[Rfam]
RNA: Small nucleolar RNA SNORA8
RNA sequence: AUUCCUGCAUGGUAUCUGCAUCCAUCAGCCGCUUCCUAAUGACAUGUUCCAAAAGCAGUGCAAUAUUCAAAUCAACAUUUGGCAUUGCUGGUUCUCAAACUGCUGUGCUUGUAGAACCUGGUAGUUUUGUUGAAACAAGU
Numbered sequence: 001a002u003u004c005c006u007g008c009a010u011g012g013u014a015u016c017u018g019c020a021u022c023c024a025u026c027a028g029c030c031g032c033u034u035c036c037u038a039a040u041g042a043c044a045u046g047u048u049c050c051a052a053a054a055g056c057a058g059u060g061c062a063a064u065a066u067u068c069a070a071a072u073c074a075a076c077a078u079u080u081g082g083c084a085u086u087g088c089u090g091g092u093u094c095u096c097a098a099a100c101u102g103c104u105g106u107g108c109u110u111g112u113a114g115a116a117c118c119u120g121g122u123a124g125u126u127u128u129g130u131u132g133a134a135a136c137a138a139g140u
Stems, first nucleotide, its partner, number of pairs: 005058003015054001017052001018047004024040002027037002061129003065125003072121003081109005